[Rfam]
RNA sequence: AUAAGGGAGCAACAACCACUUUCUUGUUCUAGCAAGAGUGUUGGUAUUGCUCCUUUAUUUUG
Numbered sequence: 001a002u003a004a005g006g007g008a009g010c011a012a013c014a015a016c017c018a019c020u021u022u023c024u025u026g027u028u029c030u031a032g033c034a035a036g037a038g039u040g041u042u043g044g045u046a047u048u049g050c051u052c053c054u055u056u057a058u059u060u061u062g
Base pairs, nucleotide, nucleotide: 001058002057003056004055005054006053007052008051009050010049011048012047014045016043017040018039019038022037023036024035025034026033